[Rfam]
RNA sequence: AAUUGGUGCAUUGUAGUUGCAUUGCAUGUUGUUUAUUAAAUACGGUGCAAUACUUCUGCAGUGCAACCAUU
Numbered sequence: 001a002a003u004u005g006g007u008g009c010a011u012u013g014u015a016g017u018u019g020c021a022u023u024g025c026a027u028g029u030u031g032u033u034u035a036u037u038a039a040a041u042a043c044g045g046u047g048c049a050a051u052a053c054u055u056c057u058g059c060a061g062u063g064c065a066a067c068c069a070u071u
Base pairs, nucleotide, nucleotide: 001071002070003069006067007065008064009063010062011061012060013059014058015057016056019053021051022050023049024048025047026046027045